[Rfam]
RNA sequence: UAGCUCUAGCCUCGCGCUGAAGUCCCGUGGGAAUUCAGUUGUCUGCACACUACUGUUUACCAUUUCCCCGCAACAACUGAAUUCCCACGGGACUUCAGCGCGAGGCUAGAGCUU
Numbered sequence: 001u002a003g004c005u006c007u008a009g010c011c012u013c014g015c016g017c018u019g020a021a022g023u024c025c026c027g028u029g030g031g032a033a034u035u036c037a038g039u040u041g042u043c044u045g046c047a048c049a050c051u052a053c054u055g056u057u058u059a060c061c062a063u064u065u066c067c068c069c070g071c072a073a074c075a076a077c078u079g080a081a082u083u084c085c086c087a088c089g090g091g092a093c094u095u096c097a098g099c100g101c102g103a104g105g106c107u108a109g110a111g112c113u114u
Stems, first nucleotide, its partner, number of pairs: 003112005009106001011104005017098003023092008033082010